A member of the RNA family "Small nucleolar RNA SNORD56", 71 nucleotides long. For this family Rfam cites "Purified box C/D snoRNPs are able to reproduce site-specific 2'-O-methylation of target RNA in vitro" (Galardi et al., Mol Cell Biol, 2002). Rfam's curators put it in the seed alignment. The family's RNA type in Rfam is C/D-box small nucleolar RNA.
[Rfam]
RNA sequence: CUAUUAGGAUGACAAUAUUUUUUGUCAGCAGCAGCUUACCUAAUGAGUGUUGAUGCUUUGGGUCUGAGUGA
Numbered sequence: 001c002u003a004u005u006a007g008g009a010u011g012a013c014a015a016u017a018u019u020u021u022u023u024g025u026c027a028g029c030a031g032c033a034g035c036u037u038a039c040c041u042a043a044u045g046a047g048u049g050u051u052g053a054u055g056c057u058u059u060g061g062g063u064c065u066g067a068g069u070g071a
Stems, first nucleotide, its partner, number of pairs: 002070003008026004